[Rfam]
RNA sequence: AACAGUUCUCGGGGCGGGGUGAAAUUCCCCACCGGCGGUGACAGGUCACUGGUUUAGGCCAACCUGAAGCCCGCGAGCGCCUUGGUUUUGGACCAAGGGACAGCAGAUCCGGUGCAAUUCCGGAGCCGACGGUUACAGUCCGGAUGAGAGAGAACGAUG
Numbered sequence: 001a002a003c004a005g006u007u008c009u010c011g012g013g014g015c016g017g018g019g020u021g022a023a024a025u026u027c028c029c030c031a032c033c034g035g036c037g038g039u040g041a042c043a044g045g046u047c048a049c050u051g052g053u054u055u056a057g058g059c060c061a062a063c064c065u066g067a068a069g070c071c072c073g074c075g076a077g078c079g080c081c082u083u084g085g086u087u088u089u090g091g092a093c094c095a096a097g098g099g100a101c102a103g104c105a106g107a108u109c110c111g112g113u114g115c116a117a118u119u120c121c122g123g124a125g126c127c128g129a130c131g132g133u134u135a136c137a138g139u140c141c142g143g144a145u146g147a148g149a150g151a152g153a154a155c156g157a158u159g
Stems, first nucleotide, its partner, number of pairs: 005155006017029003031139002033128002035074004069126002077104002108124005130142003
A member of the RNA family "FMN riboswitch aptamer (RFN element)" from Roseibium sp. TrichSKD4, 159 nucleotides long. A search with the family's covariance model found it, with a score of 114 bits. Pairs were carried over by alignment from the consensus structure, which is taken from published work. Taxonomically the source falls in Roseibium (Bacteria, Pseudomonadati, Hyphomicrobiales, Stappiaceae).